[Rfam]
RNA sequence: UGGACAGAUUAUUGUAUUCGGCUGUAUUCACGGCGUGAAACAGGGAUUACAUUGUUUUUAAACGGAAAGUGAAUUAAUUAACAUAACAGACUCCU
Numbered sequence: 001u002g003g004a005c006a007g008a009u010u011a012u013u014g015u016a017u018u019c020g021g022c023u024g025u026a027u028u029c030a031c032g033g034c035g036u037g038a039a040a041c042a043g044g045g046a047u048u049a050c051a052u053u054g055u056u057u058u059u060a061a062a063c064g065g066a067a068a069g070u071g072a073a074u075u076a077a078u079u080a081a082c083a084u085a086a087c088a089g090a091c092u093c094c095u
Stems, first nucleotide, its partner, number of pairs: 002094003009089002012086004017081002020079002023076002026074006034064003037058007